[Rfam]
Small nucleolar RNA snR8: a 174-nucleotide RNA sequence from Lizanozyma spartinae. Taxonomically the source falls in Lizanozyma (Eukaryota, Dikarya, Pichiomycetes, Debaryomycetaceae). It scores 91 bits against the family's covariance model. The literature on the family includes a 1988 paper in Mol Cell Biol by Parker et al., "Genetic analysis of small nuclear RNAs in Saccharomyces cerevisiae: viable sextuple mutant".
RNA sequence: UAGCUCUUUGAUACGAACGCUUCCCAUUCACUGCACCAUCCAAAAAGAUAAGUAUUUUUCAAUGGAUGAUUGGAGGGGAAAGGGAAGCCAGAUUAAAUCUAUCGAAUUACGACCUCAUACUAAGUUUGCGUCAAUCUCUUGCAUUAUCUUGGAUUCUGCGUAUUCGAUACAAUC
Numbered sequence: 001u002a003g004c005u006c007u008u009u010g011a012u013a014c015g016a017a018c019g020c021u022u023c024c025c026a027u028u029c030a031c032u033g034c035a036c037c038a039u040c041c042a043a044a045a046a047g048a049u050a051a052g053u054a055u056u057u058u059u060c061a062a063u064g065g066a067u068g069a070u071u072g073g074a075g076g077g078g079a080a081a082g083g084g085a086a087g088c089c090a091g092a093u094u095a096a097a098u099c100u101a102u103c104g105a106a107u108u109a110c111g112a113c114c115u116c117a118u119a120c121u122a123a124g125u126u127u128g129c130g131u132c133a134a135u136c137u138c139u140u141g142c143a144u145u146a147u148c149u150u151g152g153a154u155u156c157u158g159c160g161u162a163u164u165c166g167a168u169a170c171a172a173u174c
Stems, first nucleotide, its partner, number of pairs: 019088002022085002031075002034072002037068005101168005109161003120152003124148001132141002